Shown here is a 174-nucleotide RNA sequence from Janibacter cremeus, a member of the family "c-di-AMP riboswitch aptamer (ydaO/yuaA leader)".
RNA sequence: CUUUGACGAACACCGCUUGGCAGGAGCGGGGGACCCACACCGGGGCAUCGCAGAUGCUCCUUGGGGUGAAGUCCCGCGGAGACACAUCACCUCGGUGAUGUGCCGCCACGGGACCGGGCCGCACCUCUGGCCCGAACCCGACAGCUGACCUCGUAGGCGGGAGAGGUAGAGAAC
Numbered sequence: 001c002u003u004u005g006a007c008g009a010a011c012a013c014c015g016c017u018u019g020g021c022a023g024g025a026g027c028g029g030g031g032g033a034c035c036c037a038c039a040c041c042g043g044g045g046c047a048u049c050g051c052a053g054a055u056g057c058u059c060c061u062u063g064g065g066g067u068g069a070a071g072u073c074c075c076g077c078g079g080a081g082a083c084a085c086a087u088c089a090c091c092u093c094g095g096u097g098a099u100g101u102g103c104c105g106c107c108a109c110g111g112g113a114c115c116g117g118g119c120c121g122c123a124c125c126u127c128u129g130g131c132c133c134g135a136a137c138c139c140g141a142c143a144g145c146u147g148a149c150c151u152c153g154u155a156g157g158c159g160g161g162a163g164a165g166g167u168a169g170a171g172a173a174c
Stems, first nucleotide, its partner, number of pairs: 001023001026154006036063002064139003072113004116133004
Gene Ontology terms of the family: cyclic-di-AMP binding and regulation of gene expression. Lineage of the source: Bacteria > Actinomycetota > Actinomycetes > Intrasporangiaceae > Janibacter. The base pairs follow the family's consensus structure.